[Rfam]
Nucleotides: 083
Stems, first nucleotide, its partner, number of pairs: 002027002004024005010019002052079003055075005061070002
Number, partner (000 for none) and nucleotide at each position: 001000u002027g003026g004024a005023c006022a007021g008020u009000a010019u011018c012000a013000a014000u015000u016000c017000u018011g019010a020008a021007c022006u023005g024004u025000a026003c027002c028000u029000a030000u031000g032000g033000a034000c035000u036000a037000a038000a039000u040000a041000c042000u043000a044000a045000a046000a047000a048000c049000a050000a051000u052079c053078u054077g055075c056074c057073u058072u059071g060000a061070u062069c063000a064000a065000a066000u067000a068000a069062g070061a071059c072058a073057a074056g075055g076000a077054c078053g079052g080000a081000a082000g083000a